[Rfam]
The family of this 90-nucleotide RNA from Propionigenium maris is "Glycine riboswitch aptamer".
The match comes from Rfam's covariance-model search (69 bits).

RNA sequence: GGACGAACCUCUGGAGAGAUCCAAAUGAUGGACACCGAAGGUGCAAGCCCAUGGGGUAAAACUCUCAGGUAAAAGGACAGAGGGAUUUGA
Numbered sequence: 001g002g003a004c005g006a007a008c009c010u011c012u013g014g015a016g017a018g019a020u021c022c023a024a025a026u027g028a029u030g031g032a033c034a035c036c037g038a039a040g041g042u043g044c045a046a047g048c049c050c051a052u053g054g055g056g057u058a059a060a061a062c063u064c065u066c067a068g069g070u071a072a073a074a075g076g077a078c079a080g081a082g083g084g085a086u087u088u089g090a
Stems, first nucleotide, its partner, number of pairs: 008083006020032004034070003037066002041064001043062001047057002